[Rfam]
RNA sequence: AAUUGAAAACUUAAUAUAAUAGAACCUAGUGCAGAAAGUUUGAACAGCUUGCUAGGAUAACGUGGCGUAAUUCUGAAUGUAGCCUAGAGUGCGAUAGUGUUUUAGGUAGCAGGUAUGUCUUAUGGUGACAUAAGAGUAACUACUAGUAAAAGCUAGUAUCAGUUAAGCGUUAUGUGGAGUGUACAUGGAUUGUAAGGUACAAGACUCUUGGGGGAUAUAAUAGACGUUCCUGUGGAAAAGAAUCUAAGUUAGGUGGAAGCGUGAGAAACUUGGCAGACCUUAGAAACCUCAAAAGACUCCCUUUGACGAGAACCAUAGAAAUAUGGGUUUAACAAGAGACCUUGGUACAAGUAGCCUAAGUCAGCUUACAAAAUAUAUGGUAUAAGAAGAACUUAUAACAAUACUAUUUAAUGCUGAAUGUUUAGGUGAACGUUGUUAGCCACCGUGCUAGACCAUACAUUAAAAGCAGAGAGAAGCUAUUGGGUAGCUCCCGAUAGUUCAGCCUCUCUGGGUAUGUGACCGAAUGCAGUGAGUGUGCAUGAAGCAGGAGUAAAAGCCCUAUUAUAUUAAGUUUUGA
Numbered sequence: 001a002a003u004u005g006a007a008a009a010c011u012u013a014a015u016a017u018a019a020u021a022g023a024a025c026c027u028a029g030u031g032c033a034g035a036a037a038g039u040u041u042g043a044a045c046a047g048c049u050u051g052c053u054a055g056g057a058u059a060a061c062g063u064g065g066c067g068u069a070a071u072u073c074u075g076a077a078u079g080u081a082g083c084c085u086a087g088a089g090u091g092c093g094a095u096a097g098u099g100u101u102u103u104a105g106g107u108a109g110c111a112g113g114u115a116u117g118u119c120u121u122a123u124g125g126u127g128a129c130a131u132a133a134g135a136g137u138a139a140c141u142a143c144u145a146g147u148a149a150a151a152g153c154u155a156g157u158a159u160c161a162g163u164u165a166a167g168c169g170u171u172a173u174g175u176g177g178a179g180u181g182u183a184c185a186u187g188g189a190u191u192g193u194a195a196g197g198u199a200c201a202a203g204a205c206u207c208u209u210g211g212g213g214g215a216u217a218u219a220a221u222a223g224a225c226g227u228u229c230c231u232g233u234g235g236a237a238a239a240g241a242a243u244c245u246a247a248g249u250u251a252g253g254u255g256g257a258a259g260c261g262u263g264a265g266a267a268a269c270u271u272g273g274c275a276g277a278c279c280u281u282a283g284a285a286a287c288c289u290c291a292a293a294a295g296a297c298u299c300c301c302u303u304u305g306a307c308g309a310g311a312a313c314c315a316u317a318g319a320a321a322u323a324u325g326g327g328u329u330u331a332a333c334a335a336g337a338g339a340c341c342u343u344g345g346u347a348c349a350a351g352u353a354g355c356c357u358a359a360g361u362c363a364g365c366u367u368a369c370a371a372a373a374u375a376u377a378u379g380g381u382a383u384a385a386g387a388a389g390a391a392c393u394u395a396u397a398a399c400a401a402u403a404c405u406a407u408u409u410a411a412u413g414c415u416g417a418a419u420g421u422u423u424a425g426g427u428g429a430a431c432g433u434u435g436u437u438a439g440c441c442a443c444c445g446u447g448c449u450a451g452a453c454c455a456u457a458c459a460u461u462a463a464a465a466g467c468a469g470a471g472a473g474a475a476g477c478u479a480u481u482g483g484g485u486a487g488c489u490c491c492c493g494a495u496a497g498u499u500c501a502g503c504c505u506c507u508c509u510g511g512g513u514a515u516g517u518g519a520c521c522g523a524a525u526g527c528a529g530u531g532a533g534u535g536u537g538c539a540u541g542a543a544g545c546a547g548g549a550g551u552a553a554a555a556g557c558c559c560u561a562u563u564a565u566a567u568u569a570a571g572u573u574u575u576g577a
Stems, first nucleotide, its partner, number of pairs: 007574016025056005036050005058172006078111003082107001084105009114138003119134006143156005179540008190531001193528001196527001197521001200344004205338006211302005227237004243284006253274002257271003262291004313326005348432001354427006413503004436452002439449001467511001469509001471507001473505001476499001478496007547558002
RNA: ROOL RNA